[Rfam]
RNA sequence: AUAAAGAAGGUCUGUGGUUGAAAGUCCAUGCCAGUCGCAGGCAAAGGGACCCACGUAAGAUAACAAAAAAACCUGUUAUCGAGCAUGGUGCGGCUUAGAUGUAAGACCUGCCGGUAACAAAUCGAGAGAAAUAGUAGUGAAGGCGAUCCCUGAGCGAACCUUCCAGCAGGCGAGUGUGGGGGCAAAGACCAGGUCAGCUUCUACUG
Numbered sequence: 001a002u003a004a005a006g007a008a009g010g011u012c013u014g015u016g017g018u019u020g021a022a023a024g025u026c027c028a029u030g031c032c033a034g035u036c037g038c039a040g041g042c043a044a045a046g047g048g049a050c051c052c053a054c055g056u057a058a059g060a061u062a063a064c065a066a067a068a069a070a071a072c073c074u075g076u077u078a079u080c081g082a083g084c085a086u087g088g089u090g091c092g093g094c095u096u097a098g099a100u101g102u103a104a105g106a107c108c109u110g111c112c113g114g115u116a117a118c119a120a121a122u123c124g125a126g127a128g129a130a131a132u133a134g135u136a137g138u139g140a141a142g143g144c145g146a147u148c149c150c151u152g153a154g155c156g157a158a159c160c161u162u163c164c165a166g167c168a169g170g171c172g173a174g175u176g177u178g179g180g181g182g183c184a185a186a187g188a189c190c191a192g193g194u195c196a197g198c199u200u201c202u203a204c205u206g
Stems, first nucleotide, its partner, number of pairs: 005202005012197003015191005028177003031041001033095007050088002059080007086184001107170005112124004128163003137155002141151003
Rfam assigns this 206-nucleotide RNA sequence from Natronincola ferrireducens to the family "raiA RNA". It scores 174 bits against the family's covariance model.